RNA: Small nucleolar RNA SNORD79
Organism: Pantherophis guttatus
RNA sequence: UACUGUUAAUGAUGAAAUUGGAAAGAACAAUGGGAAUCUCUCUGAAAAAUAGUGAAGAUACAAUUUUACUGAGACAGUA
Numbered sequence: 001u002a003c004u005g006u007u008a009a010u011g012a013u014g015a016a017a018u019u020g021g022a023a024a025g026a027a028c029a030a031u032g033g034g035a036a037u038c039u040c041u042c043u044g045a046a047a048a049a050u051a052g053u054g055a056a057g058a059u060a061c062a063a064u065u066u067u068a069c070u071g072a073g074a075c076a077g078u079a
Stems, first nucleotide, its partner, number of pairs: 001079007